A member of the RNA family "Lysine riboswitch aptamer" from Lachnospiraceae bacterium KH1T2, 168 nucleotides long. The match comes from Rfam's covariance-model search (75 bits).
RNA sequence: UAAAGCAAUAGAGGUAGCGAUGCAAAUGAGUACUUCACGGAGCCGGCAGGCUGUGAAAUGAAGGAAAGGUAACCAUCGCCGAACGAAGCAUAUCGGCAGAUAUACUCCGUGGGGAUUCGGAAAAUAUCCGUAUCACUCCUUCAUUUAUGAAGAGGCGCUAUUUAAUAA
Numbered sequence: 001u002a003a004a005g006c007a008a009u010a011g012a013g014g015u016a017g018c019g020a021u022g023c024a025a026a027u028g029a030g031u032a033c034u035u036c037a038c039g040g041a042g043c044c045g046g047c048a049g050g051c052u053g054u055g056a057a058a059u060g061a062a063g064g065a066a067a068g069g070u071a072a073c074c075a076u077c078g079c080c081g082a083a084c085g086a087a088g089c090a091u092a093u094c095g096g097c098a099g100a101u102a103u104a105c106u107c108c109g110u111g112g113g114g115a116u117u118c119g120g121a122a123a124a125u126a127u128c129c130g131u132a133u134c135a136c137u138c139c140u141u142c143a144u145u146u147a148u149g150a151a152g153a154g155g156c157g158c159u160a161u162u163u164a165a166u167a168a
Base pairs, nucleotide, nucleotide: 007162008161009160010159011158017079018078019077020076021075022074025070033063034062035061036060037059083110084109085108087106088105090103091102092101093100094099111137112136114134115133116132118130119129120128121127139152140151141150142149143148
Dot-bracket structure: ......(((((.....((((((..(.......(((((.....................)))))......)...))))))...(((.((.(((((....))))).)).)))((.(((.((((.....)))).))).)).(((((....))))).....)))))......
Taxonomically the source falls in Lachnospiraceae (Bacteria, Bacillati, Bacillota, Lachnospirales).